[Rfam]
A member of the RNA family "S15-Flavobacteria ribosomal protein leader", 59 nucleotides long.
RNA sequence: UAUAUUUGCACCCGAGAAAAAUUUCUCGUACAUAAUAAUCAUUGAAAUAUAUUUGCAUG
Numbered sequence: 001u002a003u004a005u006u007u008g009c010a011c012c013c014g015a016g017a018a019a020a021a022u023u024u025c026u027c028g029u030a031c032a033u034a035a036u037a038a039u040c041a042u043u044g045a046a047a048u049a050u051a052u053u054u055g056c057a058u059g
Stems, first nucleotide, its partner, number of pairs: 014027005